Description: The record is a 162-nucleotide RNA from Cebus imitator, which matches "U1 spliceosomal RNA" in Rfam. Taxonomically the source falls in Cebus (Eukaryota, Mammalia, Eutheria, Haplorrhini). It scores 145 bits against the family's covariance model.
[Rfam]
RNA sequence: GUGCUUACCUGGCAGGGGAGAUACCACGAUCACGAAGGUGGUUUUCCCAGGGCGAGGCUUAUCCGUUGCACUCCGGAUGUGCUGACCCCUGCGAUUUCCCAAAUGUGGGAAACCCGACUGCAUAAUUUGUGGUGUGGGGGACUGCGUUCAUGCUUUCCCCUG
Numbered sequence: 001g002u003g004c005u006u007a008c009c010u011g012g013c014a015g016g017g018g019a020g021a022u023a024c025c026a027c028g029a030u031c032a033c034g035a036a037g038g039u040g041g042u043u044u045u046c047c048c049a050g051g052g053c054g055a056g057g058c059u060u061a062u063c064c065g066u067u068g069c070a071c072u073c074c075g076g077a078u079g080u081g082c083u084g085a086c087c088c089c090u091g092c093g094a095u096u097u098c099c100c101a102a103a104u105g106u107g108g109g110a111a112a113c114c115c116g117a118c119u120g121c122a123u124a125a126u127u128u129g130u131g132g133u134g135u136g137g138g139g140g141a142c143u144g145c146g147u148u149c150a151u152g153c154u155u156u157c158c159c160c161u162g
Stems, first nucleotide, its partner, number of pairs: 012121004016048006023042005049090004054086001056083003060079005092116002095112001096110004136161006144153003